[Rfam]
The family of this 64-nucleotide sequence is "Bacilli-1 RNA". The family's consensus secondary structure is taken from published work. It is annotated as a small RNA.
RNA sequence: AUUCGUGUGAUACGAAAGUGUAAUAGAAGCACAUUACACUGCUUGGCAGAGCUUAAGAACUGUU
Numbered sequence: 001a002u003u004c005g006u007g008u009g010a011u012a013c014g015a016a017a018g019u020g021u022a023a024u025a026g027a028a029g030c031a032c033a034u035u036a037c038a039c040u041g042c043u044u045g046g047c048a049g050a051g052c053u054u055a056a057g058a059a060c061u062g063u064u
Stems, first nucleotide, its partner, number of pairs: 002016006017040007